[Rfam]
RNA sequence: CGAGUCAGCCAGAUGAUCGCGGCCCUUGUGGGGCUGAGGAAAGUCCGGGCUCCGCAGAGCACGGUGGUGGGUAACGCCCACCCGGGGUGACCCGAGGGCAAGUGCAACAGAAAGCAAACCGCCUGGCGACAGGUAAGGGUGAAACGGUGGUGUAAGAGACCACCAGCGCGGCAGGUGACUGUGGCGGCUAGGUAAACCCCACCGGGAGCAAGACCAAGAAGGCCUCCGGGCCGCGGACACCGAUCGAGCGCUGCUCGCGCGAGGUGUUCGGGUAGGUCGCACGAGCGGCGCGGCAACGCGUCGCCUCAGAUAGAUGAUCAUCCGAUGACAGAACCCGGCUUACCGGCUGGCUCGUCCC
Numbered sequence: 001c002g003a004g005u006c007a008g009c010c011a012g013a014u015g016a017u018c019g020c021g022g023c024c025c026u027u028g029u030g031g032g033g034c035u036g037a038g039g040a041a042a043g044u045c046c047g048g049g050c051u052c053c054g055c056a057g058a059g060c061a062c063g064g065u066g067g068u069g070g071g072u073a074a075c076g077c078c079c080a081c082c083c084g085g086g087g088u089g090a091c092c093c094g095a096g097g098g099c100a101a102g103u104g105c106a107a108c109a110g111a112a113a114g115c116a117a118a119c120c121g122c123c124u125g126g127c128g129a130c131a132g133g134u135a136a137g138g139g140u141g142a143a144a145c146g147g148u149g150g151u152g153u154a155a156g157a158g159a160c161c162a163c164c165a166g167c168g169c170g171g172c173a174g175g176u177g178a179c180u181g182u183g184g185c186g187g188c189u190a191g192g193u194a195a196a197c198c199c200c201a202c203c204g205g206g207a208g209c210a211a212g213a214c215c216a217a218g219a220a221g222g223c224c225u226c227c228g229g230g231c232c233g234c235g236g237a238c239a240c241c242g243a244u245c246g247a248g249c250g251c252u253g254c255u256c257g258c259g260c261g262a263g264g265u266g267u268u269c270g271g272g273u274a275g276g277u278c279g280c281a282c283g284a285g286c287g288g289c290g291c292g293g294c295a296a297c298g299c300g301u302c303g304c305c306u307c308a309g310a311u312a313g314a315u316g317a318u319c320a321u322c323c324g325a326u327g328a329c330a331g332a333a334c335c336c337g338g339c340u341u342a343c344c345g346g347c348u349g350g351c352u353c354g355u356c357c358c
Base pairs, nucleotide, nucleotide: 001354002353003352004351005350006349007348008347009346010345012322013321014320015319016318017317018316020036021035022034023033024032025031026030041341042340043339045338046337047336048335049334050208051207052206053205057256058255059254060253062204063203064202065201066200067081068080069079070078071077082096083094084093085092086091097199098198102197103196104193105192119138120137121134122133123132124131125130146164147163148162149161150160151159166188167186168185169184171182172181173180174179212278213277214276215275248260249259250258251257285304286303287302288301289300290299291298292297